[Rfam]
RNA sequence: CUGCAGUGAUGAUCGUAGAUGUGACUGACCUGGAAUUGCUGCCCUCUGGGGUCGGCUCUGGCCAGUAAAUGACCUCAGUUAAUCUUCUCUCUGAGCAG
Numbered sequence: 001c002u003g004c005a006g007u008g009a010u011g012a013u014c015g016u017a018g019a020u021g022u023g024a025c026u027g028a029c030c031u032g033g034a035a036u037u038g039c040u041g042c043c044c045u046c047u048g049g050g051g052u053c054g055g056c057u058c059u060g061g062c063c064a065g066u067a068a069a070u071g072a073c074c075u076c077a078g079u080u081a082a083u084c085u086u087c088u089c090u091c092u093g094a095g096c097a098g
Base pairs, nucleotide, nucleotide: 003096004095038056039055040054041053